Small nucleolar RNA SNORA57: a 154-nucleotide RNA sequence from Physeter macrocephalus. Rfam 15.1 lists 1,736 matches to the family in 530 species. The literature on the family includes a 2003 paper in Nucleic Acids Res by Vitali et al., "Identification of 13 novel human modification guide RNAs". It scores 113 bits against the family's covariance model. It is annotated as an H/ACA-box small nucleolar RNA. NCBI's taxonomy places the organism under Eukaryota, Euteleostomi, Tetrapoda, Amniota, Physeter.
[Rfam]
RNA sequence: CCCCCAUUUCUUGGCAGAGAUGGGGCUUGCGGUCCUGGUCUCCGUAAUGCAAGGAGUAGAGGGAAAGAGGUAAGGCUCUGGCCCCCUUGGCAUAAUGUCUUCGGUACCGGCGGCUUCUAGUCUGCCAGUUCUAUCCUCAAGAGCCAGGACAUGG
Numbered sequence: 001c002c003c004c005c006a007u008u009u010c011u012u013g014g015c016a017g018a019g020a021u022g023g024g025g026c027u028u029g030c031g032g033u034c035c036u037g038g039u040c041u042c043c044g045u046a047a048u049g050c051a052a053g054g055a056g057u058a059g060a061g062g063g064a065a066a067g068a069g070g071u072a073a074g075g076c077u078c079u080g081g082c083c084c085c086c087u088u089g090g091c092a093u094a095a096u097g098u099c100u101u102c103g104g105u106a107c108c109g110g111c112g113g114c115u116u117c118u119a120g121u122c123u124g125c126c127a128g129u130u131c132u133a134u135c136c137u138c139a140a141g142a143g144c145c146a147g148g149a150c151a152u153g154g
Base pairs, nucleotide, nucleotide: 001056004054005053015044017042018041019040020039023036024035025034088146089145090144091143093141107128109126110125111124112123113122